[Rfam]
RNA sequence: GGUAGUAGCAAGUAUUCAAGCGAGAUCCUUGAAGGGCGAAGUGGGGAAGGGUUUCACGCGAACAUUGAUUGGGCGUGAGUGAGUCGUUCCUAAGCCGAGUGGCAAUUGCUAAUUAACGGCGAAAGGGAAGCGGGUUGACAUUCCCGCACACGGAUGUGGAGGCGGCGACGCAUUAUUGGGGCGAACACGCUGGCGAUGGCGCUGGGCAGAGUUGUCUUUUCUGUUUGACCGCUUGCGCACGCAGUGUGGAAUCCGCUUGUCGGGAGAAACACGCGUGUACGGGCAGAGCGCUGGGGCUUUUCCAGCGUCCAGCUCGCCAUCGACGGCCCUUGAAACUUUGCCUGCUGAAUUUAAGAUCCACGCCGUGGCGUACCGAUCACCGCAUCAGGUCCCCAAGGUGAACAGCCUCUGCUCAA
Numbered sequence: 001g002g003u004a005g006u007a008g009c010a011a012g013u014a015u016u017c018a019a020g021c022g023a024g025a026u027c028c029u030u031g032a033a034g035g036g037c038g039a040a041g042u043g044g045g046g047a048a049g050g051g052u053u054u055c056a057c058g059c060g061a062a063c064a065u066u067g068a069u070u071g072g073g074c075g076u077g078a079g080u081g082a083g084u085c086g087u088u089c090c091u092a093a094g095c096c097g098a099g100u101g102g103c104a105a106u107u108g109c110u111a112a113u114u115a116a117c118g119g120c121g122a123a124a125g126g127g128a129a130g131c132g133g134g135u136u137g138a139c140a141u142u143c144c145c146g147c148a149c150a151c152g153g154a155u156g157u158g159g160a161g162g163c164g165g166c167g168a169c170g171c172a173u174u175a176u177u178g179g180g181g182c183g184a185a186c187a188c189g190c191u192g193g194c195g196a197u198g199g200c201g202c203u204g205g206g207c208a209g210a211g212u213u214g215u216c217u218u219u220u221c222u223g224u225u226u227g228a229c230c231g232c233u234u235g236c237g238c239a240c241g242c243a244g245u246g247u248g249g250a251a252u253c254c255g256c257u258u259g260u261c262g263g264g265a266g267a268a269a270c271a272c273g274c275g276u277g278u279a280c281g282g283g284c285a286g287a288g289c290g291c292u293g294g295g296g297c298u299u300u301u302c303c304a305g306c307g308u309c310c311a312g313c314u315c316g317c318c319a320u321c322g323a324c325g326g327c328c329c330u331u332g333a334a335a336c337u338u339u340g341c342c343u344g345c346u347g348a349a350u351u352u353a354a355g356a357u358c359c360a361c362g363c364c365g366u367g368g369c370g371u372a373c374c375g376a377u378c379a380c381c382g383c384a385u386c387a388g389g390u391c392c393c394c395a396a397g398g399u400g401a402a403c404a405g406c407c408u409c410u411g412c413u414c415a416a
Base pairs, nucleotide, nucleotide: 015033016032017031018030019029020028034414035413036412037411043394044393045392046391049374050373054078055077056076057075058074059073063071064070085370086369087368089126090125094120095119096108097107098106100105130147131146132145133144134143150366151365152364153363155362156361157360158359159358162171163170164169180342181341182340183339184338185337189327190326191325192324194322195321196320197319198318199317200316202312203311204310205225206224207223208222209221210220229282230281231280244272245271246270247269252264253263254262255261289307290306291305292304293303294302295301380389381388396408397407398406399405
RNA: Eukaryotic large subunit ribosomal RNA, nucleotides 1354 to 1769